This 41-nucleotide RNA from Aquimarina sp. TRL1 belongs to the Rfam family "DUF805b RNA". A search with the family's covariance model found it, with a score of 40 bits.

RNA sequence: GUGGAGGAAUCCGAAAAUCCAAUUGAUAAAAAGAGUAGGAA
Numbered sequence: 001g002u003g004g005a006g007g008a009a010u011c012c013g014a015a016a017a018u019c020c021a022a023u024u025g026a027u028a029a030a031a032a033g034a035g036u037a038g039g040a041a
Stems, first nucleotide, its partner, number of pairs: 002021004010040003
Rfam classes the family as a cis-regulatory element. The base pairs follow the family's consensus structure, which is taken from published work.